The record is a 127-nucleotide RNA from Nippostrongylus brasiliensis, which matches "Nematode snoRNA ceN36-1" in Rfam. Gene Ontology terms of the family: nucleolus and RNA processing. The literature on the family includes a 2007 paper in BMC Mol Biol by Jia et al., "Systematic identification of non-coding RNA 2,2,7-trimethylguanosine cap structures in Caenorhabditis elegans". By type it is an H/ACA-box small nucleolar RNA. A search with the family's covariance model found it, with a score of 55 bits.
RNA sequence: UUCCGCUCUCCAGCUCCGUGCGAGGUGUUAAUACUCGGUGCGGCGUUUCAAUGAGCGAAUAGCAACGGGUUAGACGAUUAUUGGCACCUCUCUGUGGGCUGUCGAUCACUCAACUACUCGCACAUUC
Numbered sequence: 001u002u003c004c005g006c007u008c009u010c011c012a013g014c015u016c017c018g019u020g021c022g023a024g025g026u027g028u029u030a031a032u033a034c035u036c037g038g039u040g041c042g043g044c045g046u047u048u049c050a051a052u053g054a055g056c057g058a059a060u061a062g063c064a065a066c067g068g069g070u071u072a073g074a075c076g077a078u079u080a081u082u083g084g085c086a087c088c089u090c091u092c093u094g095u096g097g098g099c100u101g102u103c104g105a106u107c108a109c110u111c112a113a114c115u116a117c118u119c120g121c122a123c124a125u126u127c
Base pairs, nucleotide, nucleotide: 004057005056006055007054008053012047013046014045016043017042018041019040020039021038024035025034080106081105082104083103085101086100089098090097091096